[Rfam]
RNA: Small nucleolar RNA SNORA84
Organism: Atlantisia rogersi
RNA sequence: GCCCUGUGGUUACUGGACGCUGGUUUGUCCAUGCAGUGCUUCAGUUGGUAGAAAGGGCCAAAAGCGAUACUGUGAUUUACGCAUGGAGCCUGUGAUACGUGAGCAGCUUCCAUAGCCCGGUCACGGUUACAGGC
Numbered sequence: 001g002c003c004c005u006g007u008g009g010u011u012a013c014u015g016g017a018c019g020c021u022g023g024u025u026u027g028u029c030c031a032u033g034c035a036g037u038g039c040u041u042c043a044g045u046u047g048g049u050a051g052a053a054a055g056g057g058c059c060a061a062a063a064g065c066g067a068u069a070c071u072g073u074g075a076u077u078u079a080c081g082c083a084u085g086g087a088g089c090c091u092g093u094g095a096u097a098c099g100u101g102a103g104c105a106g107c108u109u110c111c112a113u114a115g116c117c118c119g120g121u122c123a124c125g126g127u128u129a130c131a132g133g134c
Stems, first nucleotide, its partner, number of pairs: 001059001003057002007050002010047001012045006019037004070126001072124006081116002083113004088108001090106004